Notes
The record is a 363-nucleotide RNA sequence from Leadbettera azotonutricia, which matches "Bacterial RNase P class A" in Rfam. Its family is annotated with ribonuclease P activity, dimeric ribonuclease P complex and tRNA processing in the Gene Ontology. Rfam describes the family as follows. Ribonuclease P (RNase P) is a ubiquitous endoribonuclease, found in archaea, bacteria and eukarya as well as chloroplasts and mitochondria. Lineage of the source: Bacteria > Spirochaetia > Breznakiellaceae > Leadbettera > Leadbettera azotonutricia. A search with the family's covariance model found it, with a score of 254 bits.

RNA sequence: AGCGAUGGACCGGCUGCCGCGCCGCGCGAAGCUUUUGCUUCCGGGUGAGGAAAGUCCGGGCUCCGCAGGGCAUGAUGCCGGGUAACGCCCGGGCGCUUCGCUCCAAAGGGCGAAGCGACAGAGAGCGCAGCAGAAAAUAUACCGCGAACCCAUUGGGCCGCAAGGGUGAAAAGGCGGGGCAAGAGCCCACCGCCCAGGCAGCAAUGCCUGGGGCACUGCAAACCUCAUCAGGAGCAAAGCCAAGCAGCAGUUGGAGGGCCCCUUCAAGACUGCGGGUAGGCUGCAAAGAGGGAAUCCGCGAGGAUCCCCCAAGAUAGAUGACAGCCAAUCAUACAGAACCCGGCUUAUGGUUCAUCGCUUUUU
Numbered sequence: 001a002g003c004g005a006u007g008g009a010c011c012g013g014c015u016g017c018c019g020c021g022c023c024g025c026g027c028g029a030a031g032c033u034u035u036u037g038c039u040u041c042c043g044g045g046u047g048a049g050g051a052a053a054g055u056c057c058g059g060g061c062u063c064c065g066c067a068g069g070g071c072a073u074g075a076u077g078c079c080g081g082g083u084a085a086c087g088c089c090c091g092g093g094c095g096c097u098u099c100g101c102u103c104c105a106a107a108g109g110g111c112g113a114a115g116c117g118a119c120a121g122a123g124a125g126c127g128c129a130g131c132a133g134a135a136a137a138u139a140u141a142c143c144g145c146g147a148a149c150c151c152a153u154u155g156g157g158c159c160g161c162a163a164g165g166g167u168g169a170a171a172a173g174g175c176g177g178g179g180c181a182a183g184a185g186c187c188c189a190c191c192g193c194c195c196a197g198g199c200a201g202c203a204a205u206g207c208c209u210g211g212g213g214c215a216c217u218g219c220a221a222a223c224c225u226c227a228u229c230a231g232g233a234g235c236a237a238a239g240c241c242a243a244g245c246a247g248c249a250g251u252u253g254g255a256g257g258g259c260c261c262c263u264u265c266a267a268g269a270c271u272g273c274g275g276g277u278a279g280g281c282u283g284c285a286a287a288g289a290g291g292g293a294a295u296c297c298g299c300g301a302g303g304a305u306c307c308c309c310c311a312a313g314a315u316a317g318a319u320g321a322c323a324g325c326c327a328a329u330c331a332u333a334c335a336g337a338a339c340c341c342g343g344c345u346u347a348u349g350g351u352u353c354a355u356c357g358c359u360u361u362u363u
Stems, first nucleotide, its partner, number of pairs: 001359010012326005018320001020047004026041001028039001052346003056343005061234004068261004073230005078092005093119001094117010120225002125223001127219003142165002144161003149156002173191002176188003192214001193212008238282004247273005252266005290309003294305004
Dot-bracket structure: ((((((((((.(((((.(.((((..(.(..........).)..))))....[[[.[[[[[((((...[[[[.((((((((((.....)))))(((((((((((....)))))))))).)((...(.(((............(((((..((....))..)))..)).......((.(((.......))).))(((((((((....)))))))).)..)))...))))))))))))...((((.....((((((((((.]]]])))))..))))).....)))).......(((.((((....)))).)))..........).)))))............]]]]]]]]...))))))))))....